[Rfam]
RNA: BsrG
Organism: Sporomusa acidovorans
RNA sequence: AAGGUUGUCAAGGGAGCGGUUGGCCACACCCUUUUUGAAAGGGGGUGGUAUGAUGACAAUAUUUGAGGCAAUGUAUCUGAUGAUCGCAUUUGCAACACUUGUUGUUUUAAUCAUAAAACGAAAAUAACCGCCCCUAGCCAAGGACUGCGGUUAUUUCGUAAAUAAUCAAAACUGAGGCUAACCGUUUCCGGUUAGACAACCUAUGGGGCUGGCGUGCUAGCAACACGUCAG
Numbered sequence: 001a002a003g004g005u006u007g008u009c010a011a012g013g014g015a016g017c018g019g020u021u022g023g024c025c026a027c028a029c030c031c032u033u034u035u036u037g038a039a040a041g042g043g044g045g046u047g048g049u050a051u052g053a054u055g056a057c058a059a060u061a062u063u064u065g066a067g068g069c070a071a072u073g074u075a076u077c078u079g080a081u082g083a084u085c086g087c088a089u090u091u092g093c094a095a096c097a098c099u100u101g102u103u104g105u106u107u108u109a110a111u112c113a114u115a116a117a118a119c120g121a122a123a124a125u126a127a128c129c130g131c132c133c134c135u136a137g138c139c140a141a142g143g144a145c146u147g148c149g150g151u152u153a154u155u156u157c158g159u160a161a162a163u164a165a166u167c168a169a170a171a172c173u174g175a176g177g178c179u180a181a182c183c184g185u186u187u188c189c190g191g192u193u194a195g196a197c198a199a200c201c202u203a204u205g206g207g208g209c210u211g212g213c214g215u216g217c218u219a220g221c222a223a224c225a226c227g228u229c230a231g
Base pairs, nucleotide, nucleotide: 002193005180007178008177009176012135013134014133016131018129019128020127021126025047026046027045029044030043031042032041033040055106056105057104058103059102060101061100069082070081092098148158149157150156181192182191183190184189209231210230211229212228213227214226215225216224218222